[Rfam]
Rfam assigns this 101-nucleotide RNA to the family "Small nucleolar RNA Z199". Rfam links the family to the GO terms nucleolus and RNA processing. From the family's description: snoZ199 is a C/D box small nucleolar RNA, which acts as a methylation guide RNA for sites on 18S and 25S rRNA. Rice snoZ199 is reported to be homologous to Arabidopsis snoR13. Rfam classes the family as a C/D-box small nucleolar RNA. The family's consensus secondary structure was predicted with PFOLD.

RNA sequence: AAUCAUGUGAUGAGAAAAUAAAAAAUAACUGCAACAAUAUGAUGGGAUUUAUUUCCAUGAUUCCUAUUAUUUAACUUUCUCUGAAAUUAACUUUUUUGAUU
Numbered sequence: 001a002a003u004c005a006u007g008u009g010a011u012g013a014g015a016a017a018a019u020a021a022a023a024a025a026u027a028a029c030u031g032c033a034a035c036a037a038u039a040u041g042a043u044g045g046g047a048u049u050u051a052u053u054u055c056c057a058u059g060a061u062u063c064c065u066a067u068u069a070u071u072u073a074a075c076u077u078u079c080u081c082u083g084a085a086a087u088u089a090a091c092u093u094u095u096u097u098g099a100u101u
Base pairs, nucleotide, nucleotide: 001101002100003099004098005097044056045055046054047053